[Rfam]
RNA sequence: AGCAGAGUGGCGCAGUGGAAGCGUGCUGGGCCCAUAACCCAGAGGUCCGAGGAUCGAAACCUUGCUCUGCUA
Dot-bracket structure: (((((((..((((.......)))).(((((.......))))).....(((((.......)))))))))))).
Numbered sequence: 001a002g003c004a005g006a007g008u009g010g011c012g013c014a015g016u017g018g019a020a021g022c023g024u025g026c027u028g029g030g031c032c033c034a035u036a037a038c039c040c041a042g043a044g045g046u047c048c049g050a051g052g053a054u055c056g057a058a059a060c061c062u063u064g065c066u067c068u069g070c071u072a
Stems, first nucleotide, its partner, number of pairs: 001071007010024004026042005048064005